[Rfam]
A member of the RNA family "Small nucleolar RNA snoR53Y" from Vanilla planifolia, 80 nucleotides long.
Clan: snoR53 clan.
It scores 61 bits against the family's covariance model.
Gene Ontology terms of the family: RNA processing and nucleolus.
It is annotated as a C/D-box small nucleolar RNA.
A reference for the family is Brown et al. (2001), "Multiple snoRNA gene clusters from Arabidopsis", RNA.

RNA sequence: GUUCCCAAUGAUGCUCCUUUCAACCAUGCUAAUUCUGAGAUCUUUUGAUGACUCACUCAGAGUUUCUUCCUGAGGGAACA
Numbered sequence: 001g002u003u004c005c006c007a008a009u010g011a012u013g014c015u016c017c018u019u020u021c022a023a024c025c026a027u028g029c030u031a032a033u034u035c036u037g038a039g040a041u042c043u044u045u046u047g048a049u050g051a052c053u054c055a056c057u058c059a060g061a062g063u064u065u066c067u068u069c070c071u072g073a074g075g076g077a078a079c080a
Base pairs, nucleotide, nucleotide: 001079002078003077004076005075